The family of this 67-nucleotide RNA from Flavobacterium sp. GT3R68 is "Flavo-1 RNA". It is annotated as a small RNA. The match comes from Rfam's covariance-model search (55 bits).
RNA sequence: UUUUAGCCCCGACAGUAGCGGCAUCCCACGCUUUUUUGCGUGGAUACAGCGGAUGGCGGGAAAUAGC
Numbered sequence: 001u002u003u004u005a006g007c008c009c010c011g012a013c014a015g016u017a018g019c020g021g022c023a024u025c026c027c028a029c030g031c032u033u034u035u036u037u038g039c040g041u042g043g044a045u046a047c048a049g050c051g052g053a054u055g056g057c058g059g060g061a062a063a064u065a066g067c
Stems, first nucleotide, its partner, number of pairs: 009059003013055002018050002023045004028041004
Dot-bracket structure: ........(((.((...((...((((.((((......))))))))...))...)).)))........